[Rfam]
Rfam assigns this 75-nucleotide RNA sequence from Haemonchus placei to the family "mir-5928 microRNA precursor family". A search with the family's covariance model found it, with a score of 61 bits. Rfam 15.1 lists 1,672 matches to the family in 12 species. The family's consensus secondary structure was predicted with RNAalifold.
RNA sequence: GGGGCAAACCUGUAGUAGAGUAGAUUAGUAGGAUCAGCUGACCAUACCCAACUAUUCUAUUUCGAGUUUGUGUCC
Numbered sequence: 001g002g003g004g005c006a007a008a009c010c011u012g013u014a015g016u017a018g019a020g021u022a023g024a025u026u027a028g029u030a031g032g033a034u035c036a037g038c039u040g041a042c043c044a045u046a047c048c049c050a051a052c053u054a055u056u057c058u059a060u061u062u063c064g065a066g067u068u069u070g071u072g073u074c075c
Stems, first nucleotide, its partner, number of pairs: 001074002004071006011064002014061010025050001028047003032043001034041002